[Rfam]
RNA sequence: AUCAUGGUACUUCCGGCUUGGACGCGUCACGGCAUCGGCCGGCUCGGCAUCAGAAUGCGGAGAGAUGAAAUUUCUAUGG
Numbered sequence: 001a002u003c004a005u006g007g008u009a010c011u012u013c014c015g016g017c018u019u020g021g022a023c024g025c026g027u028c029a030c031g032g033c034a035u036c037g038g039c040c041g042g043c044u045c046g047g048c049a050u051c052a053g054a055a056u057g058c059g060g061a062g063a064g065a066u067g068a069a070a071u072u073u074c075u076a077u078g079g
Stems, first nucleotide, its partner, number of pairs: 012076001013042006043062003047058003063075003
Shown here is a 79-nucleotide RNA, a member of the family "pemK RNA".